[Rfam]
RNA sequence: GUCGAGCUUGGUUGCGCGAGCUUGUAACCCGAGUGGGGAUAUUAAGAUAGUUGAACACUGGUCGGGUUUCACCCGGUAGGUGCUGGUGCGUAGGCUGUGUUAACUCGCCCGCUCCAAGUUGGGAGUUAGUCUCAUUGUCCUUGCGUAGGCUUGGGCUGUGUGACCACUAUAGCGGAGGGCACUGCGUCAGGCUGGUUUCACAGAGCAACGAUCACCUCCCGCUCUCGACAGUGGAAGGAUCACGAGUCGAUGUGCCCCAGUUCCAACUCAGCCUGGUGAGCCGAGUCAGUUGAACAACCACCUUU
Numbered sequence: 001g002u003c004g005a006g007c008u009u010g011g012u013u014g015c016g017c018g019a020g021c022u023u024g025u026a027a028c029c030c031g032a033g034u035g036g037g038g039a040u041a042u043u044a045a046g047a048u049a050g051u052u053g054a055a056c057a058c059u060g061g062u063c064g065g066g067u068u069u070c071a072c073c074c075g076g077u078a079g080g081u082g083c084u085g086g087u088g089c090g091u092a093g094g095c096u097g098u099g100u101u102a103a104c105u106c107g108c109c110c111g112c113u114c115c116a117a118g119u120u121g122g123g124a125g126u127u128a129g130u131c132u133c134a135u136u137g138u139c140c141u142u143g144c145g146u147a148g149g150c151u152u153g154g155g156c157u158g159u160g161u162g163a164c165c166a167c168u169a170u171a172g173c174g175g176a177g178g179g180c181a182c183u184g185c186g187u188c189a190g191g192c193u194g195g196u197u198u199c200a201c202a203g204a205g206c207a208a209c210g211a212u213c214a215c216c217u218c219c220c221g222c223u224c225u226c227g228a229c230a231g232u233g234g235a236a237g238g239a240u241c242a243c244g245a246g247u248c249g250a251u252g253u254g255c256c257c258c259a260g261u262u263c264c265a266a267c268u269c270a271g272c273c274u275g276g277u278g279a280g281c282c283g284a285g286u287c288a289g290u291u292g293a294a295c296a297a298c299c300a301c302c303u304u305u
Stems, first nucleotide, its partner, number of pairs: 001040003004023007028037003044304003048300001050298004056292002058289003062284004069279005075273003079264002082261005088256001090255003100250002103247005109238002113235004118229009127166001129164003133160003137156004143150002167172001174219005185210003192203003
Background:
The record is a 305-nucleotide RNA sequence from Papaver somniferum, which matches "Plant signal recognition particle RNA" in Rfam. On this family, see Wild et al., Curr Opin Struct Biol 2002: "Towards the structure of the mammalian signal recognition particle". The base pairs follow the family's consensus structure, which is taken from published work.